[Rfam]
RNA sequence: GAAUGAAGGAAGCAAGGCAGUGAGCAUAAAAAAUGGAACCGGGUCUCGGGCCUGCCCUCUCUUAUGCCUUCUGGCUUUGAUUUAUGGGCAUGGUUCCAAGCCAUGGCA
Numbered sequence: 001g002a003a004u005g006a007a008g009g010a011a012g013c014a015a016g017g018c019a020g021u022g023a024g025c026a027u028a029a030a031a032a033a034u035g036g037a038a039c040c041g042g043g044u045c046u047c048g049g050g051c052c053u054g055c056c057c058u059c060u061c062u063u064a065u066g067c068c069u070u071c072u073g074g075c076u077u078u079g080a081u082u083u084a085u086g087g088g089c090a091u092g093g094u095u096c097c098a099a100g101c102c103a104u105g106g107c108a
Stems, first nucleotide, its partner, number of pairs: 012025002041091001043089003050081001052079001054075003

Shown here is a 108-nucleotide sequence from Rhododendron simsii, a member of the family "Small nucleolar RNA snoR100". Rfam links the family to the GO terms RNA processing and nucleolus. Taxonomically the source falls in Rhododendron (Eukaryota, Spermatophyta, eudicotyledons, Rhodoreae).